[Rfam]
RNA sequence: UUUUAUAAAAAUCGGAUUCUUCAUAUAUACUCGCCAAUAUGGGGCGAAAGUCUCUACCAGGUUGCCGUAAACAACCUGACUAUGAAGGUUUGAAAUUCUUAU
Numbered sequence: 001u002u003u004u005a006u007a008a009a010a011a012u013c014g015g016a017u018u019c020u021u022c023a024u025a026u027a028u029a030c031u032c033g034c035c036a037a038u039a040u041g042g043g044g045c046g047a048a049a050g051u052c053u054c055u056a057c058c059a060g061g062u063u064g065c066c067g068u069a070a071a072c073a074a075c076c077u078g079a080c081u082a083u084g085a086a087g088g089u090u091u092g093a094a095a096u097u098c099u100u101a102u
Stems, first nucleotide, its partner, number of pairs: 018088008031047005058078007